[Rfam]
Shown here is an 85-nucleotide RNA from Neptunomonas concharum, a member of the family "sRNA-Xcc1". Taxonomically the source falls in Neptunomonas (Bacteria, Gammaproteobacteria, Oceanospirillales, Oceanospirillaceae). Pairs were carried over by alignment from the consensus structure, which was predicted with RNAalifold.
RNA sequence: GCCGGGAGGGUGAUGAAUACAAUACCCUUCGGGGGAAUAAAUCCGCAGCUCUUGCUGGCUGUUUCGAACCUCCCGGCACCCCUAU
Numbered sequence: 001g002c003c004g005g006g007a008g009g010g011u012g013a014u015g016a017a018u019a020c021a022a023u024a025c026c027c028u029u030c031g032g033g034g035g036a037a038u039a040a041a042u043c044c045g046c047a048g049c050u051c052u053u054g055c056u057g058g059c060u061g062u063u064u065c066g067a068a069c070c071u072c073c074c075g076g077c078a079c080c081c082c083u084a085u
Base pairs, nucleotide, nucleotide: 001077002076003075004074005073006072007071008070009069012043013042014041016038025034026033027032045062046061047060048059049058050057